RNA sequence: UUGGCCAGUGAUAAGAAAAGACGCGUUAUUACGAGGACUUUUGCUGGAGACUUGCAUAUUUCAAUCUACUUCCCAUCUUCCUUUAUCCACAACCUUUCUCUCUGUUCUCUAAUGUCUGUGCUAGUUUCUGGUGUCCAACUGAGCAAGAUUAUGAGAUAUGAGGGCCAA
Number, nucleotide and partner (000 for none) at each position: 001u168002u167003g166004g165005c164006c163007a000008g000009u000010g000011a000012u000013a000014a000015g000016a000017a000018a000019a000020g000021a000022c000023g000024c000025g000026u000027u000028a000029u000030u000031a000032c000033g000034a053035g052036g051037a000038c049039u048040u047041u000042u000043g000044c000045u000046g000047g040048a039049g038050a000051c036052u035053u034054g000055c000056a000057u000058a000059u000060u000061u000062c000063a000064a000065u000066c000067u000068a000069c000070u000071u000072c000073c000074c000075a000076u000077c000078u000079u000080c000081c000082u000083u000084u000085a000086u000087c000088c000089a000090c000091a000092a000093c000094c000095u000096u000097u000098c000099u000100c000101u000102c000103u000104g000105u000106u000107c000108u000109c000110u000111a000112a000113u000114g000115u000116c000117u000118g000119u000120g000121c000122u000123a000124g000125u000126u000127u000128c000129u000130g000131g000132u000133g000134u000135c000136c000137a000138a000139c000140u000141g000142a000143g000144c000145a000146a000147g000148a000149u000150u000151a000152u000153g000154a000155g000156a000157u000158a000159u000160g000161a000162g000163g006164g005165c004166c003167a002168a001
Source information:
Shown here is a 168-nucleotide sequence from Hymenochirus boettgeri, a member of the family "Small nucleolar RNA SNORD97". Rfam classes the family as a C/D-box small nucleolar RNA.